[Rfam]
RNA: SAM riboswitch aptamer (S box leader)
Organism: Virgibacillus salexigens
RNA sequence: UUCUUAUCCAGAGAGGUGGAGGGACUGGCCCUUGGAAGCCUCGGCAACAGACUUUUCAUACGUACUGUGCCAAUUCCAGAUGCAUGCUGCAUGAAGAUAAGAA
Numbered sequence: 001u002u003c004u005u006a007u008c009c010a011g012a013g014a015g016g017u018g019g020a021g022g023g024a025c026u027g028g029c030c031c032u033u034g035g036a037a038g039c040c041u042c043g044g045c046a047a048c049a050g051a052c053u054u055u056u057c058a059u060a061c062g063u064a065c066u067g068u069g070c071c072a073a074u075u076c077c078a079g080a081u082g083c084a085u086g087c088u089g090c091a092u093g094a095a096g097a098u099a100a101g102a103a
Base pairs, nucleotide, nucleotide: 001103002102003101004100005099006098007097008096013042014041015040016039017038021031022030023029025079026078027077028076043071044070045069046068048067049066051063052062075095080092081091082090083089084088